[Rfam]
RNA sequence: AGGCAAGAUGUGUAAUGUUAUAUAACAUGGCAAGCCUUGGUUAUAUAAAUUACCCGACUUAUUCGCUUUCAGCUCAACGUGGCAUCUUGUCCUGCGGAGCU
Numbered sequence: 001a002g003g004c005a006a007g008a009u010g011u012g013u014a015a016u017g018u019u020a021u022a023u024a025a026c027a028u029g030g031c032a033a034g035c036c037u038u039g040g041u042u043a044u045a046u047a048a049a050u051u052a053c054c055c056g057a058c059u060u061a062u063u064c065g066c067u068u069u070c071a072g073c074u075c076a077a078c079g080u081g082g083c084a085u086c087u088u089g090u091c092c093u094g095c096g097g098a099g100c101u
Base pairs, nucleotide, nucleotide: 002091003090004089005088006087007086008085009084012053013052014051015050016049019047020046021045024042025041026040030036055082057080058079065073066072067071

The family of this 101-nucleotide RNA sequence from Acinetobacter baumannii is "traJ-II RNA". The organism belongs to Acinetobacter baumannii, within Bacteria.